[Rfam]
RNA sequence: GGUAGUAGCAAAUAUUCAAACGAGAACUUUGAAGGCCGAAGUGGAGAAGGGUUCCAUGUGAACAGCAGUUGAACAUGGGUCAGUCGGUCCUAAGGGAUGGGCGAACGCCGUUCGGAAGCGCGGGGCGAUGUCCUACGUCGCCCCGGCCGAUCGAAAGGGAGUCGGGUUCAAAUCCCCGAACCUGGAGGUGUGGAGAUAGGCGCCGCGAGGCGCCCAGUGCGGUAACGCAAACGAACCCGGAGAAGCUGGCGGGGGCCCCGGGGAGAGUUCUCUUUUCUUUGUGAAGGGCAGGGCGCCCUGGAAUGGGUUCGCCCCGAGAUAGGGGCCCGUGCCCUGGAAAGCGUCGCGGUUCCGGCGGCGUCCGGUGAGCUCUCGCUGGCCCUUGAAAAUCCGGGGGAGAAGGUGUAAGUCUCACGCCAGACCGUACCCAUAUCCGCAGCAGGUCUCCAAGGUGAACAGCCUCUGGCAUGU
Numbered sequence: 001g002g003u004a005g006u007a008g009c010a011a012a013u014a015u016u017c018a019a020a021c022g023a024g025a026a027c028u029u030u031g032a033a034g035g036c037c038g039a040a041g042u043g044g045a046g047a048a049g050g051g052u053u054c055c056a057u058g059u060g061a062a063c064a065g066c067a068g069u070u071g072a073a074c075a076u077g078g079g080u081c082a083g084u085c086g087g088u089c090c091u092a093a094g095g096g097a098u099g100g101g102c103g104a105a106c107g108c109c110g111u112u113c114g115g116a117a118g119c120g121c122g123g124g125g126c127g128a129u130g131u132c133c134u135a136c137g138u139c140g141c142c143c144c145g146g147c148c149g150a151u152c153g154a155a156a157g158g159g160a161g162u163c164g165g166g167u168u169c170a171a172a173u174c175c176c177c178g179a180a181c182c183u184g185g186a187g188g189u190g191u192g193g194a195g196a197u198a199g200g201c202g203c204c205g206c207g208a209g210g211c212g213c214c215c216a217g218u219g220c221g222g223u224a225a226c227g228c229a230a231a232c233g234a235a236c237c238c239g240g241a242g243a244a245g246c247u248g249g250c251g252g253g254g255g256c257c258c259c260g261g262g263g264a265g266a267g268u269u270c271u272c273u274u275u276u277c278u279u280u281g282u283g284a285a286g287g288g289c290a291g292g293g294c295g296c297c298c299u300g301g302a303a304u305g306g307g308u309u310c311g312c313c314c315c316g317a318g319a320u321a322g323g324g325g326c327c328c329g330u331g332c333c334c335u336g337g338a339a340a341g342c343g344u345c346g347c348g349g350u351u352c353c354g355g356c357g358g359c360g361u362c363c364g365g366u367g368a369g370c371u372c373u374c375g376c377u378g379g380c381c382c383u384u385g386a387a388a389a390u391c392c393g394g395g396g397g398a399g400a401a402g403g404u405g406u407a408a409g410u411c412u413c414a415c416g417c418c419a420g421a422c423c424g425u426a427c428c429c430a431u432a433u434c435c436g437c438a439g440c441a442g443g444u445c446u447c448c449a450a451g452g453u454g455a456a457c458a459g460c461c462u463c464u465g466g467c468a469u470g471u
Base pairs, nucleotide, nucleotide: 015033016032017031018030019029020028034469035467036466037465043448044447045446046445049428050427054078055077056076057075058074059073063071064070085424086423087422089158090157094152095151096112097111098110100109101108102107119145120144162179163178164177165176166175182420183419184418185417207413208412209411210410218229219228220227221226236395237394238393239392240391241390245380246379247378248377250375251374252373253372254371255370256369258365259364260363262280263279264278265277266276285335286334287333288332289331296324297323298322299321300320304316305315306314307313342360343359344358345357346356347355434443435442450462451461452460453459
RNA: Eukaryotic large subunit ribosomal RNA, nucleotides 1724 to 2194
Organism: Oreochromis niloticus